[Rfam]
RNA sequence: UUUCUCGAAUGCGACUGGCGAAGCAAAGGCGGGAUUGACCGCCGGGAAGCGGCACAGUUCUAUCGUGCGCCUGGGUAGAACUU
Numbered sequence: 001u002u003u004c005u006c007g008a009a010u011g012c013g014a015c016u017g018g019c020g021a022a023g024c025a026a027a028g029g030c031g032g033g034a035u036u037g038a039c040c041g042c043c044g045g046g047a048a049g050c051g052g053c054a055c056a057g058u059u060c061u062a063u064c065g066u067g068c069g070c071c072u073g074g075g076u077a078g079a080a081c082u083u
Base pairs, nucleotide, nucleotide: 003054005052010051011050012049015046016045017071018070019069020068029042030041031040032039060078061077062076063075064074